RNA sequence: CAUGCGGUGUCGGGUGAAACAGUCCUGAUAGCGGCGUGGCUUCAAAUUGAGGU
Numbered sequence: 001c002a003u004g005c006g007g008u009g010u011c012g013g014g015u016g017a018a019a020c021a022g023u024c025c026u027g028a029u030a031g032c033g034g035c036g037u038g039g040c041u042u043c044a045a046a047u048u049g050a051g052g053u
Stems, first nucleotide, its partner, number of pairs: 001038005007032002011027004015021001
Description:
This 53-nucleotide RNA from Mesocricetibacter intestinalis belongs to the Rfam family "L31-Gammaproteobacteria ribosomal protein leader". For this family Rfam cites "Discovery of 20 novel ribosomal leader candidates in bacteria and archaea" (Eckert and Weinberg, BMC Microbiol, 2020). The family is grouped with related families in Rfam's "Ribosomal Protein L31 Leader clan". The match comes from Rfam's covariance-model search (52 bits).